[Rfam]
Flavo-1 RNA: an 80-nucleotide RNA from Flavobacterium sp. FPG59. A search with the family's covariance model found it, with a score of 60 bits. By type it is a small RNA. The family's consensus secondary structure is taken from published work.

RNA sequence: AGUGAACUUCGUUUGCAGUGAAAAUCCUUUUCUUUUUCCCUUUAAAAAAGAAAAGAUUGCAACGGAUAGCGGGAAUUAGC
Numbered sequence: 001a002g003u004g005a006a007c008u009u010c011g012u013u014u015g016c017a018g019u020g021a022a023a024a025u026c027c028u029u030u031u032c033u034u035u036u037u038c039c040c041u042u043u044a045a046a047a048a049a050g051a052a053a054a055g056a057u058u059g060c061a062a063c064g065g066a067u068a069g070c071g072g073g074a075a076u077u078a079g080c
Stems, first nucleotide, its partner, number of pairs: 009072003013068001018063002023058004029053008